The family of this 103-nucleotide sequence from Atlantibacter hermannii is "Enterobacteria rnk leader". A search with the family's covariance model found it, with a score of 53 bits. Pairs were carried over by alignment from the consensus structure, which is taken from published work. Its family is annotated with regulation of gene expression in the Gene Ontology. NCBI's taxonomy places the organism under Bacteria, Pseudomonadati, Gammaproteobacteria, Enterobacteriaceae, Atlantibacter hermannii. For this family Rfam cites "Premature terminator analysis sheds light on a hidden world of bacterial transcriptional attenuation" (Naville and Gautheret, Genome Biol, 2010). Rfam classes the family as a cis-regulatory leader.
RNA sequence: UUGAAAAAUGACGGGGAAAUAUCACUUCAAACUCACGGCCCGGAUAAGUAUCAUCCCCUUAGUUAACCCUCAUCGCUUUUGACGGUGAGGGUUUUUCUUUGGA
Numbered sequence: 001u002u003g004a005a006a007a008a009u010g011a012c013g014g015g016g017a018a019a020u021a022u023c024a025c026u027u028c029a030a031a032c033u034c035a036c037g038g039c040c041c042g043g044a045u046a047a048g049u050a051u052c053a054u055c056c057c058c059u060u061a062g063u064u065a066a067c068c069c070u071c072a073u074c075g076c077u078u079u080u081g082a083c084g085g086u087g088a089g090g091g092u093u094u095u096u097c098u099u100u101g102g103a
Stems, first nucleotide, its partner, number of pairs: 010028002014025001016023002065093011